Shown here is a 96-nucleotide RNA sequence from Amphibalanus amphitrite, a member of the family "mir-210 microRNA precursor family".

RNA sequence: UUCGACUGCACUUCAGCUACUGGACACGGCACAAGAAAAGAUGUGAAUACUCUUGUGCGUGUGACAGCGGCUAUUGUGCUUUCGAACAUCGCCCAG
Numbered sequence: 001u002u003c004g005a006c007u008g009c010a011c012u013u014c015a016g017c018u019a020c021u022g023g024a025c026a027c028g029g030c031a032c033a034a035g036a037a038a039a040g041a042u043g044u045g046a047a048u049a050c051u052c053u054u055g056u057g058c059g060u061g062u063g064a065c066a067g068c069g070g071c072u073a074u075u076g077u078g079c080u081u082u083c084g085a086a087c088a089u090c091g092c093c094c095a096g
Stems, first nucleotide, its partner, number of pairs: 005082001008079004015072004020067003025061002029058005035052002

NCBI's taxonomy places the organism under Eukaryota, Bilateria, Mandibulata, Balanidae, Amphibalanus. For this family Rfam cites "The developmental miRNA profiles of zebrafish as determined by small RNA cloning" (Chen et al., Genes Dev, 2005). The base pairs follow the family's consensus structure, which was predicted with WAR. Its family is annotated with miRNA-mediated post-transcriptional gene silencing and RISC complex in the Gene Ontology.